A member of the RNA family "drum RNA", 114 nucleotides long.
Rfam's curators write: Firmicutes, Bacteroidetes (1 example), Proteobacteria (2 examples), Spirochaetes (2 examples).
The sequence is in the family's curated seed alignment.
Pairs were carried over by alignment from the consensus structure, which is taken from published work.
Rfam classes the family as a small RNA.

RNA sequence: AAGCGUUGAAGCAUAGCAGCGUACUGGAAUGCCUUGUUAUGCCAAGCUUUCAAGAAGGGUUGUGCAGUGGAACCUCAAACCGGAGUAGGUCUUAUCCGAAAGAAAAUGCUCAUU
Numbered sequence: 001a002a003g004c005g006u007u008g009a010a011g012c013a014u015a016g017c018a019g020c021g022u023a024c025u026g027g028a029a030u031g032c033c034u035u036g037u038u039a040u041g042c043c044a045a046g047c048u049u050u051c052a053a054g055a056a057g058g059g060u061u062g063u064g065c066a067g068u069g070g071a072a073c074c075u076c077a078a079a080c081c082g083g084a085g086u087a088g089g090u091c092u093u094a095u096c097c098g099a100a101a102g103a104a105a106a107u108g109c110u111c112a113u114u
Stems, first nucleotide, its partner, number of pairs: 001049004011042009021032002024083004064109003088097002